RNA: T-box leader
RNA sequence: ACAACAACGUUUGAGAAGGAAGUAGUAAAAAGUCGAAAGUUUUAGAGAGCACAUGGUUGGUGGAAAUGUGUACGGACGCUUUUGAACUCGCCUUUAAGUUGCAACUGCCGAAAGUAAUAGUAAGCAGAAGCGGUGACGACCGUUACGACGUCCGAGGCCUUGGUCUACAAGGCAAAAUUAGGUGGUACCACGUAGAUUACGUCCUAUAA
Numbered sequence: 001a002c003a004a005c006a007a008c009g010u011u012u013g014a015g016a017a018g019g020a021a022g023u024a025g026u027a028a029a030a031a032g033u034c035g036a037a038a039g040u041u042u043u044a045g046a047g048a049g050c051a052c053a054u055g056g057u058u059g060g061u062g063g064a065a066a067u068g069u070g071u072a073c074g075g076a077c078g079c080u081u082u083u084g085a086a087c088u089c090g091c092c093u094u095u096a097a098g099u100u101g102c103a104a105c106u107g108c109c110g111a112a113a114g115u116a117a118u119a120g121u122a123a124g125c126a127g128a129a130g131c132g133g134u135g136a137c138g139a140c141c142g143u144u145a146c147g148a149c150g151u152c153c154g155a156g157g158c159c160u161u162g163g164u165c166u167a168c169a170a171g172g173c174a175a176a177a178u179u180a181g182g183u184g185g186u187a188c189c190a191c192g193u194a195g196a197u198u199a200c201g202u203c204c205u206a207u208a209a
Stems, first nucleotide, its partner, number of pairs: 007099002016094004028083006039073002049071006105127004131142003157173006179206004190202005